[Rfam]
RNA sequence: UGUCAUCCAGUGCCCAGACACUGGGAUCCAGCAAAAUUGAUUGUAAACAAGCGCACUAUACAACAUCUUCGAUGAAACCACAAAAAAAACUGGAUUCCAGUGUCAGCUACUUGCAUGACACCAA
Numbered sequence: 001u002g003u004c005a006u007c008c009a010g011u012g013c014c015c016a017g018a019c020a021c022u023g024g025g026a027u028c029c030a031g032c033a034a035a036a037u038u039g040a041u042u043g044u045a046a047a048c049a050a051g052c053g054c055a056c057u058a059u060a061c062a063a064c065a066u067c068u069u070c071g072a073u074g075a076a077a078c079c080a081c082a083a084a085a086a087a088a089a090c091u092g093g094a095u096u097c098c099a100g101u102g103u104c105a106g107c108u109a110c111u112u113g114c115a116u117g118a119c120a121c122c123a124a
Stems, first nucleotide, its partner, number of pairs: 001120006008113001009111004014106001017104015